The record is a 36-nucleotide RNA sequence, which matches "S4-Bacteroidia ribosomal protein leader" in Rfam. The family's RNA type in Rfam is cis-regulatory leader. The base pairs follow the family's consensus structure, which is taken from published work.
[Rfam]
RNA sequence: GACCAUAUUCAAUCAGCCUCUCUAUGGUCGCGGCUG
Numbered sequence: 001g002a003c004c005a006u007a008u009u010c011a012a013u014c015a016g017c018c019u020c021u022c023u024a025u026g027g028u029c030g031c032g033g034c035u036g
Stems, first nucleotide, its partner, number of pairs: 001029007
Dot-bracket structure: (((((((...............))))))).......
Rfam's curators put it in the seed alignment.